[Rfam]
RNA sequence: ACCCAUGAUGACAUAUCCACAUUUUAGAGGUGUAGAUGGGUCCAAGUCCCUGUUUUGCAGGGAGAACCUACUUGGAGCUGCUACAUUCAGAUGACAUCUCUGGAUUUGUCUGAGGC
Numbered sequence: 001a002c003c004c005a006u007g008a009u010g011a012c013a014u015a016u017c018c019a020c021a022u023u024u025u026a027g028a029g030g031u032g033u034a035g036a037u038g039g040g041u042c043c044a045a046g047u048c049c050c051u052g053u054u055u056u057g058c059a060g061g062g063a064g065a066a067c068c069u070a071c072u073u074g075g076a077g078c079u080g081c082u083a084c085a086u087u088c089a090g091a092u093g094a095c096a097u098c099u100c101u102g103g104a105u106u107u108g109u110c111u112g113a114g115g116c
Stems, first nucleotide, its partner, number of pairs: 002115002048062005
Rfam assigns this 116-nucleotide sequence from Musa troglodytarum to the family "Small nucleolar RNA Z278". By type it is a C/D-box small nucleolar RNA. The base pairs follow the family's consensus structure, which was predicted with PFOLD.